A member of the RNA family "c-di-AMP riboswitch aptamer (ydaO/yuaA leader)" from Thermoclostridium caenicola, 150 nucleotides long. Lineage of the source: Bacteria > Bacillati > Clostridia > Oscillospiraceae > Thermoclostridium. Rfam 15.1 lists 7,607 matches to the family in 2,262 species.
[Rfam]
RNA sequence: AUGGUUGAAGUGCUGAAUUCCUGUCUGCUUUCUUGGACAGGAUACGGGGGAACCAAUUCAUGGGGUGAAUCCGGAAAUUAUUUCCGGUAGGGCUAAUUCCUUUCGGCCCGAAUCCGUCAGCUAACCUCGGAAGCUUUGAAGGGAAGGAUG
Numbered sequence: 001a002u003g004g005u006u007g008a009a010g011u012g013c014u015g016a017a018u019u020c021c022u023g024u025c026u027g028c029u030u031u032c033u034u035g036g037a038c039a040g041g042a043u044a045c046g047g048g049g050g051a052a053c054c055a056a057u058u059c060a061u062g063g064g065g066u067g068a069a070u071c072c073g074g075a076a077a078u079u080a081u082u083u084c085c086g087g088u089a090g091g092g093c094u095a096a097u098u099c100c101u102u103u104c105g106g107c108c109c110g111a112a113u114c115c116g117u118c119a120g121c122u123a124a125c126c127u128c129g130g131a132a133g134c135u136u137u138g139a140a141g142g143g144a145a146g147g148a149u150g
Base pairs, nucleotide, nucleotide: 012134013133014132019042020041021040022039023038024037025036026035027034045129046128047127048126049125054062055061063115064114065113071087072086073085074084090109091108092107093106